[Rfam]
Shown here is a 74-nucleotide RNA from Ixodes scapularis, a member of the family "mir-71 microRNA precursor family". Rfam 15.1 lists 372 matches to the family in 291 species. For this family Rfam cites "Direct sequencing and expression analysis of a large number of miRNAs in Aedes aegypti and a multi-species survey of novel mosquito miRNAs" (Li et al., BMC Genomics, 2009). Rfam's curators put it in the seed alignment.
RNA sequence: AUUCCCUGAAAGACAUGGGUAGUGAGAUGAGUUUGACUGCAUUGCCAUCUCACUACCUUGUCUUUGUUGGAAAU
Numbered sequence: 001a002u003u004c005c006c007u008g009a010a011a012g013a014c015a016u017g018g019g020u021a022g023u024g025a026g027a028u029g030a031g032u033u034u035g036a037c038u039g040c041a042u043u044g045c046c047a048u049c050u051c052a053c054u055a056c057c058u059u060g061u062c063u064u065u066g067u068u069g070g071a072a073a074u
Stems, first nucleotide, its partner, number of pairs: 009065007017058003021054009